[Rfam]
RNA sequence: UGGGCUGGCCGGAAGGUCUAGGUCCACCGCGGCGGGGAUAUUCCCC
Numbered sequence: 001u002g003g004g005c006u007g008g009c010c011g012g013a014a015g016g017u018c019u020a021g022g023u024c025c026a027c028c029g030c031g032g033c034g035g036g037g038a039u040a041u042u043c044c045c046c
Stems, first nucleotide, its partner, number of pairs: 001026006007018004